[Rfam]
RNA sequence: AUUCUGAAAGUGAGAAUUGGAGAGAUCCAAACUGAUUGCAAAUUCUAGCAAACAGUUUGGUUUUCUCCAAUGUCUUACCUUCAAUGA
Dot-bracket structure: ....((((..((((.((((((.(((.((((.((....................)).)))).))).))))))..))))..))))....
Numbered sequence: 001a002u003u004c005u006g007a008a009a010g011u012g013a014g015a016a017u018u019g020g021a022g023a024g025a026u027c028c029a030a031a032c033u034g035a036u037u038g039c040a041a042a043u044u045c046u047a048g049c050a051a052a053c054a055g056u057u058u059g060g061u062u063u064u065c066u067c068c069a070a071u072g073u074c075u076u077a078c079c080u081u082c083a084a085u086g087a
Stems, first nucleotide, its partner, number of pairs: 005083004011077004016071006023064003027060004032055002
The record is an 87-nucleotide sequence from Protea cynaroides, which matches "MIR2275 microRNA precursor family" in Rfam. Rfam links the family to the GO terms RISC complex and miRNA-mediated post-transcriptional gene silencing.